[Rfam]
RNA sequence: GCUGGGGCCAGUCAGGACCAGUCGUGGGCAAAAUAUAUAUAUUUUUGUCCACUGUUGCAGUCUUCCUAGAGCAAAGUGGAGGUCUCUGUCUGCUUUAGGACAGCCAACUAAACUGGAUCGUUCCCCUCCACACACG
Numbered sequence: 001g002c003u004g005g006g007g008c009c010a011g012u013c014a015g016g017a018c019c020a021g022u023c024g025u026g027g028g029c030a031a032a033a034u035a036u037a038u039a040u041a042u043u044u045u046u047g048u049c050c051a052c053u054g055u056u057g058c059a060g061u062c063u064u065c066c067u068a069g070a071g072c073a074a075a076g077u078g079g080a081g082g083u084c085u086c087u088g089u090c091u092g093c094u095u096u097a098g099g100a101c102a103g104c105c106a107a108c109u110a111a112a113c114u115g116g117a118u119c120g121u122u123c124c125c126c127u128c129c130a131c132a133c134a135c136g
Stems, first nucleotide, its partner, number of pairs: 004066003009060001011058002024052006035042001078129005086120001088118003092114001094112005
The record is a 136-nucleotide RNA sequence from Lepidothrix coronata, which matches "Small Cajal body specific RNA 3" in Rfam. Lineage of the source: Eukaryota > Dipnotetrapodomorpha > Archelosauria > Dinosauria > Lepidothrix. By type it is a small Cajal body RNA. It scores 96 bits against the family's covariance model.